[Rfam]
RNA sequence: UUCCUGAGUAUAAGCGGUCAGUGUGUAGUAAACAUGCGGGACAUUGCUCUACAG
Number, nucleotide and partner (000 for none) at each position: 001u000002u000003c000004c000005u000006g049007a048008g047009u046010a045011u000012a000013a000014g000015c039016g000017g000018u041019c040020a000021g037022u036023g035024u034025g033026u032027a000028g000029u000030a000031a000032a026033c025034a024035u023036g022037c021038g000039g015040g019041a018042c000043a000044u000045u010046g009047c008048u007049c006050u000051a000052c000053a000054g000
A member of the RNA family "Xanthine riboswitch aptamer (NMT1 RNA)" from Acinetobacter pittii, 54 nucleotides long. The organism belongs to Acinetobacter pittii, within Bacteria. The literature on the family includes a 2020 paper in RNA by Yu and Breaker, "A bacterial riboswitch class senses xanthine and uric acid to regulate genes associated with purine oxidation". It is one of the family's seed sequences. Its family is annotated with purine nucleobase binding in the Gene Ontology.